[Rfam]
RNA sequence: UGCAGAGUAGAAAACGUGCAUUAAGUGCUACAAGAUGGGAUGUUGCUUGUAGACGAAGAAAUUUUUCGUGGUUCGUUUUCGCAUCCACCGCU
Numbered sequence: 001u002g003c004a005g006a007g008u009a010g011a012a013a014a015c016g017u018g019c020a021u022u023a024a025g026u027g028c029u030a031c032a033a034g035a036u037g038g039g040a041u042g043u044u045g046c047u048u049g050u051a052g053a054c055g056a057a058g059a060a061a062u063u064u065u066u067c068g069u070g071g072u073u074c075g076u077u078u079u080c081g082c083a084u085c086c087a088c089c090g091c092u
Stems, first nucleotide, its partner, number of pairs: 002091002005088001010080007018072001019070003025054002028052007038086005058067003